Notes
Rfam assigns this 82-nucleotide RNA from Brevibacillus sp. SYP-B805 to the family "c-di-GMP-I riboswitch aptamer". The base pairs follow the family's consensus structure, which is taken from published work. A search with the family's covariance model found it, with a score of 77 bits. The source organism's lineage runs through Bacteria, Bacillati, Bacilli, Caryophanales and Brevibacillus.
RNA sequence: CAAUCGAAAAGGCAAACCUGUCGAAAGACUGGGACGCAAAACUACAGACCUAAAGGUAAUCUAUGGUGGCUGAGUUGUCGAA
Numbered sequence: 001c002a003a004u005c006g007a008a009a010a011g012g013c014a015a016a017c018c019u020g021u022c023g024a025a026a027g028a029c030u031g032g033g034a035c036g037c038a039a040a041a042c043u044a045c046a047g048a049c050c051u052a053a054a055g056g057u058a059a060u061c062u063a064u065g066g067u068g069g070c071u072g073a074g075u076u077g078u079c080g081a082a
Base pairs, nucleotide, nucleotide: 012037013036017032018031020029021028022027040076041075042074043073045072046071047070048067049066050065055061056060